Rfam assigns this 87-nucleotide RNA to the family "c-di-GMP-II-GCG riboswitch aptamer". Pairs were carried over by alignment from the consensus structure, which is taken from published work. Rfam links the family to the GO terms regulation of gene expression and cyclic-di-GMP binding.
RNA sequence: UCCAAGACGGGAAGCAAAGACGCGUGAUCCACUCCGGUCGCCGAACCGGAUCACGUCGAGCAGUGGCGAGCCCGGUCCCGUGUGAGA
Numbered sequence: 001u002c003c004a005a006g007a008c009g010g011g012a013a014g015c016a017a018a019g020a021c022g023c024g025u026g027a028u029c030c031a032c033u034c035c036g037g038u039c040g041c042c043g044a045a046c047c048g049g050a051u052c053a054c055g056u057c058g059a060g061c062a063g064u065g066g067c068g069a070g071c072c073c074g075g076u077c078c079c080g081u082g083u084g085a086g087a
Base pairs, nucleotide, nucleotide: 001087002086005083007081008080009079010078011077014061015060022056023055024054025053026052027051028050029049036073037072038069039068040067041066042065